Rfam assigns this 268-nucleotide RNA sequence from Alkalibacillus haloalkaliphilus to the family "Bacterial large signal recognition particle RNA". From the family's description: The signal recognition particle (SRP) is a universally conserved ribonucleoprotein involved in the co-translational targeting of proteins to membranes. Gene Ontology terms of the family: signal recognition particle, plasma membrane targeting and SRP-dependent cotranslational protein targeting to membrane, signal sequence recognition. NCBI's taxonomy places the organism under Bacteria, Bacillati, Bacillota, Caryophanales, Alkalibacillus. By type it is a non-coding RNA gene. The family's consensus secondary structure is taken from published work.

RNA sequence: CCGUGCUAGGUGGGGAGGUAGCGGUGCCCUGUUACCCACAAUCCGCUAUAGUGGGGCUGAAUUCCCGUCUGAGGUAAAGUAAUCUUAAGGUCUGACGUAAGUGAAUAGUGUUGACGUUUGGGUCCUGUGCAACGAGAACCCGUGAACCCUGUCAGGUCCGGAAGGAAGCAGCAGUAAGCGGUCUCUCUCGUGUGUCGCAGGGUUACCUGAACCGAGCUAGGAUCUUGCGUAACGCUUAUGGGUUACUUUAUCGAAGAUGGGUGCACGG
Numbered sequence: 001c002c003g004u005g006c007u008a009g010g011u012g013g014g015g016a017g018g019u020a021g022c023g024g025u026g027c028c029c030u031g032u033u034a035c036c037c038a039c040a041a042u043c044c045g046c047u048a049u050a051g052u053g054g055g056g057c058u059g060a061a062u063u064c065c066c067g068u069c070u071g072a073g074g075u076a077a078a079g080u081a082a083u084c085u086u087a088a089g090g091u092c093u094g095a096c097g098u099a100a101g102u103g104a105a106u107a108g109u110g111u112u113g114a115c116g117u118u119u120g121g122g123u124c125c126u127g128u129g130c131a132a133c134g135a136g137a138a139c140c141c142g143u144g145a146a147c148c149c150u151g152u153c154a155g156g157u158c159c160g161g162a163a164g165g166a167a168g169c170a171g172c173a174g175u176a177a178g179c180g181g182u183c184u185c186u187c188u189c190g191u192g193u194g195u196c197g198c199a200g201g202g203u204u205a206c207c208u209g210a211a212c213c214g215a216g217c218u219a220g221g222a223u224c225u226u227g228c229g230u231a232a233c234g235c236u237u238a239u240g241g242g243u244u245a246c247u248u249u250a251u252c253g254a255a256g257a258u259g260g261g262u263g264c265a266c267g268g
Stems, first nucleotide, its partner, number of pairs: 001268006009058003012030004017025001019023001035055005064261007073252005079246005086238004093231002097228005106220001107218003116212008124201006130192002133190005140181004149174004157166003